Shown here is an 89-nucleotide RNA sequence from Anaerobacillus arseniciselenatis, a member of the family "c-di-GMP-I riboswitch aptamer". A search with the family's covariance model found it, with a score of 78 bits. The base pairs follow the family's consensus structure, which is taken from published work. The source organism's lineage runs through Bacteria, Bacillota, Bacilli, Caryophanales and Anaerobacillus. On this family, see Sudarsan et al., Science 2008: "Riboswitches in Eubacteria Sense the Second Messenger Cyclic Di-GMP". About the family: GEMM was predicted in a large-scale screen for bacterial structured RNA regulatory elements.
RNA sequence: CAACGAUCAAAGCAAAACUAAGGAAACUUAGUGACGCAAAGCUAUAGGAGCUAAGCUUGUAAAAACAAGUAUGCUAGCCAGUUGCCGUU
Numbered sequence: 001c002a003a004c005g006a007u008c009a010a011a012g013c014a015a016a017a018c019u020a021a022g023g024a025a026a027c028u029u030a031g032u033g034a035c036g037c038a039a040a041g042c043u044a045u046a047g048g049a050g051c052u053a054a055g056c057u058u059g060u061a062a063a064a065a066c067a068a069g070u071a072u073g074c075u076a077g078c079c080a081g082u083u084g085c086c087g088u089u
Stems, first nucleotide, its partner, number of pairs: 012037002017032006040083004047079002049075003056069004